Rfam assigns this 84-nucleotide sequence from Deinococcus ficus to the family "c-di-GMP-II-GAG riboswitch aptamer".
RNA sequence: CAAAGUCUGGGAGGCGACGACCUCUGCUCCGUAACGCGGUCACCUGGGGCAGGGCGAGCCAGUGGUGAGCCCGCCCCAGCGUGG
Dot-bracket structure: (.(.(.(((((.(((......((((((((........[[[[[[[..))))))))...)))...]]]]]..]]..)))))).).)
Numbered sequence: 001c002a003a004a005g006u007c008u009g010g011g012a013g014g015c016g017a018c019g020a021c022c023u024c025u026g027c028u029c030c031g032u033a034a035c036g037c038g039g040u041c042a043c044c045u046g047g048g049g050c051a052g053g054g055c056g057a058g059c060c061a062g063u064g065g066u067g068a069g070c071c072c073g074c075c076c077c078a079g080c081g082u083g084g
Stems, first nucleotide, its partner, number of pairs: 001084001003082001005080001007079005013060003022054008038072002040068005